RNA sequence: CGCAUGGAUAGAGGCGCGGAGCGCAAGGUAGCGGGACAAUGACAAGGGCAGGCGAGCCCGAUGUGUCACGUGAAUGUCCGCUCCGCCGAAGGGGGAUGUGAAUCGUACAGCCCUCCCCCUGAGCCGUGGGCCCAGUGCUUGCGGAUUGUCAUGAAGUAACAUGAAGCGCUAUUUGUGUC
Numbered sequence: 001c002g003c004a005u006g007g008a009u010a011g012a013g014g015c016g017c018g019g020a021g022c023g024c025a026a027g028g029u030a031g032c033g034g035g036a037c038a039a040u041g042a043c044a045a046g047g048g049c050a051g052g053c054g055a056g057c058c059c060g061a062u063g064u065g066u067c068a069c070g071u072g073a074a075u076g077u078c079c080g081c082u083c084c085g086c087c088g089a090a091g092g093g094g095g096a097u098g099u100g101a102a103u104c105g106u107a108c109a110g111c112c113c114u115c116c117c118c119c120u121g122a123g124c125c126g127u128g129g130g131c132c133c134a135g136u137g138c139u140u141g142c143g144g145a146u147u148g149u150c151a152u153g154a155a156g157u158a159a160c161a162u163g164a165a166g167c168g169c170u171a172u173u174u175g176u177g178u179c
Base pairs, nucleotide, nucleotide: 006174007173008172009171010170011169016086017085018084019083020082021081022080023079031071032070033069035067036066037065038064090120091119092118093117094116095115096114098112121147122146124144125143126142127141128140129139130138131137149164150163151162152161153160
Rfam assigns this 179-nucleotide RNA sequence from Flavonifractor plautii to the family "Lysine riboswitch aptamer". It scores 61 bits against the family's covariance model.